Rfam assigns this 355-nucleotide sequence from Trichechus manatus to the family "7SK RNA". Lineage of the source: Eukaryota > Deuterostomia > Craniata > Sarcopterygii > Trichechus manatus. By type it is a non-coding RNA gene. For this family Rfam cites "Transcription: surprising role for an elusive small nuclear RNA" (Blencowe, Curr Biol, 2002).
RNA sequence: GAAUGUGAGGGCGAUCUGGGUGUGACAUCUGUCACCCCAUUGAUCGCCAGGGUUGAUUCGGCUGAUCUGGCUGGCUAGGCAGGUGUCCCCUACCCACCUCACCACUCCAUGUGCAUCUCUCUGCAAGCCGUGUGCUCAGUCGAAGAGGACGACCUUCCCCGAUAGAGGAGAGGACUGCCCUUCAGUCAAUGGUAUAUGAGUAGCUGCACUCCCCUGCUAGAACCUCCAAACAAGCUCUCAAAUCUUUUGCCCAUUUUUAGAAUUGGAUUGUUUGUUUUCUUACUAUUCAGUUUUGAAGGUUCUUUACAUAUUCUAGAUGUAAGUCCUUUAUUACAUAUGCAUUUUGCAGAUAUUU
Dot-bracket structure: (.(.((((((..(....((....((((((((((.(((((..(((((((...........))).)))))))..))...)))))))))).))..)...))))))...).).......(((((((..(.((.....)))..)(((....(((......))).)))..)))).))...............................(.....((.(...((.......(....(...(............................................).)...)....))...).)).....)............................(.((.(((.....))).)..).)
Numbered sequence: 001g002a003a004u005g006u007g008a009g010g011g012c013g014a015u016c017u018g019g020g021u022g023u024g025a026c027a028u029c030u031g032u033c034a035c036c037c038c039a040u041u042g043a044u045c046g047c048c049a050g051g052g053u054u055g056a057u058u059c060g061g062c063u064g065a066u067c068u069g070g071c072u073g074g075c076u077a078g079g080c081a082g083g084u085g086u087c088c089c090c091u092a093c094c095c096a097c098c099u100c101a102c103c104a105c106u107c108c109a110u111g112u113g114c115a116u117c118u119c120u121c122u123g124c125a126a127g128c129c130g131u132g133u134g135c136u137c138a139g140u141c142g143a144a145g146a147g148g149a150c151g152a153c154c155u156u157c158c159c160c161g162a163u164a165g166a167g168g169a170g171a172g173g174a175c176u177g178c179c180c181u182u183c184a185g186u187c188a189a190u191g192g193u194a195u196a197u198g199a200g201u202a203g204c205u206g207c208a209c210u211c212c213c214c215u216g217c218u219a220g221a222a223c224c225u226c227c228a229a230a231c232a233a234g235c236u237c238u239c240a241a242a243u244c245u246u247u248u249g250c251c252c253a254u255u256u257u258u259a260g261a262a263u264u265g266g267a268u269u270g271u272u273u274g275u276u277u278u279c280u281u282a283c284u285a286u287u288c289a290g291u292u293u294u295g296a297a298g299g300u301u302c303u304u305u306a307c308a309u310a311u312u313c314u315a316g317a318u319g320u321a322a323g324u325c326c327u328u329u330a331u332u333a334c335a336u337a338u339g340c341a342u343u344u345u346g347c348a349g350a351u352a353u354u355u
Stems, first nucleotide, its partner, number of pairs: 001108001003106001005102006013093001018090002024087010035074002037070003042067004046062003116171002118168004122139001125136001127135002140162003147158003203304001209298002212295001216291002225285001230281001234279001333355001335353001336350001338348003
Notes:
From the family's description: 7SK was discovered as an abundant small nuclear RNA in the mid-70s but a possible function has only recently been suggested. Two independent studies have found that 7SK RNA binds the CDK9/cyclin T complex (known as elongation factor P-TEFb). P-TEFb activates transcription by phosphorylating the C-terminal domain of RNA polymerase II. This process is negatively regulated by the 7SK RNP. The secondary structure of 7SK RNA shown here was proposed by Wasserman and Steitz on the basis of chemical modification and enzymatic cleavage experiments.